[Rfam]
RNA: Bacillaceae-1 RNA
Organism: Lederbergia galactosidilytica
RNA sequence: CACUAGGAAACGCAGGCUAAGUUCGCGCCGUCCUGGCCGUAGAGUCAAAGCGCAACUUCACCUACACUAGUACUUCCUUGUACGUCGCAACGCCUGCAUGACCACAUCCUGUAGG
Numbered sequence: 001c002a003c004u005a006g007g008a009a010a011c012g013c014a015g016g017c018u019a020a021g022u023u024c025g026c027g028c029c030g031u032c033c034u035g036g037c038c039g040u041a042g043a044g045u046c047a048a049a050g051c052g053c054a055a056c057u058u059c060a061c062c063u064a065c066a067c068u069a070g071u072a073c074u075u076c077c078u079u080g081u082a083c084g085u086c087g088c089a090a091c092g093c094c095u096g097c098a099u100g101a102c103c104a105c106a107u108c109c110u111g112u113a114g115g
Stems, first nucleotide, its partner, number of pairs: 012097006025088003029084003102114001104112002